MIR5284 microRNA precursor family: a 111-nucleotide sequence from Medicago truncatula. The base pairs follow the family's consensus structure, which was predicted with RNAalifold. Gene Ontology terms of the family: RISC complex and miRNA-mediated post-transcriptional gene silencing.
RNA sequence: UUGUAAUUUUAGAUUCCUCCACUUUUGGUCCCUUAUUUUACGUACCAUGUAUGCAGAUUCUGCUUACGUGAUGGAACGAGAGAUCAAAAGUGGAAGAAUAUGAAAUUACAA
Numbered sequence: 001u002u003g004u005a006a007u008u009u010u011a012g013a014u015u016c017c018u019c020c021a022c023u024u025u026u027g028g029u030c031c032c033u034u035a036u037u038u039u040a041c042g043u044a045c046c047a048u049g050u051a052u053g054c055a056g057a058u059u060c061u062g063c064u065u066a067c068g069u070g071a072u073g074g075a076a077c078g079a080g081a082g083a084u085c086a087a088a089a090g091u092g093g094a095a096g097a098a099u100a101u102g103a104a105a106u107u108a109c110a111a
Stems, first nucleotide, its partner, number of pairs: 004108008013099004018094013032080003036076004044072001046070005053063004

The organism belongs to Medicago, within Eukaryota.